[Rfam]
RNA sequence: UUGCACUCGGCAAGUCCUACACGACCAGCUCCCUUAGAAUCCUCCAGGGUGGGAACGCAGCAAAGGUAUAAGGUUGUAGCGGUGCGAUGUAGGUAGCUUGCCAUUUU
Numbered sequence: 001u002u003g004c005a006c007u008c009g010g011c012a013a014g015u016c017c018u019a020c021a022c023g024a025c026c027a028g029c030u031c032c033c034u035u036a037g038a039a040u041c042c043u044c045c046a047g048g049g050u051g052g053g054a055a056c057g058c059a060g061c062a063a064a065g066g067u068a069u070a071a072g073g074u075u076g077u078a079g080c081g082g083u084g085c086g087a088u089g090u091a092g093g094u095a096g097c098u099u100g101c102c103a104u105u106u107u
Stems, first nucleotide, its partner, number of pairs: 009102007017092005022086002024083002
RNA: Bacteroidales small SRP
Organism: Capnocytophaga sp. oral taxon 338